[Rfam]
RNA sequence: AGGGCUUUGAAUUUCGUAUGAGCAUGCACUGAAAUUCGAUUCGGUGCGUGUUAAUUUUGAGAUGAGCCGAGAAAGAUGUUCUCCUCGCUAUCUAAUGCCGCAAUUUCUGUGUGGUAUUUGGACGUCGGAGAACUAAAUCC
Numbered sequence: 001a002g003g004g005c006u007u008u009g010a011a012u013u014u015c016g017u018a019u020g021a022g023c024a025u026g027c028a029c030u031g032a033a034a035u036u037c038g039a040u041u042c043g044g045u046g047c048g049u050g051u052u053a054a055u056u057u058u059g060a061g062a063u064g065a066g067c068c069g070a071g072a073a074a075g076a077u078g079u080u081c082u083c084c085u086c087g088c089u090a091u092c093u094a095a096u097g098c099c100g101c102a103a104u105u106u107c108u109g110u111g112u113g114g115u116a117u118u119u120g121g122a123c124g125u126c127g128g129a130g131a132a133c134u135a136a137a138u139c140c
Stems, first nucleotide, its partner, number of pairs: 002063001005061003010057002013054002021052011078133007086124002091122005100112003
Source information: The record is a 140-nucleotide sequence from Pyrus ussuriensis x Pyrus communis, which matches "Small nucleolar RNA snoR136" in Rfam. Lineage of the source: Eukaryota > Streptophyta > Tracheophyta > eudicotyledons > Pyrus. Gene Ontology terms of the family: RNA processing and nucleolus. The family's consensus secondary structure was predicted with mfold. A reference for the family is Chen and Wu (2009), "Mining small RNA sequencing data: a new approach to identify small nucleolar RNAs in Arabidopsis", Nucleic Acids Res.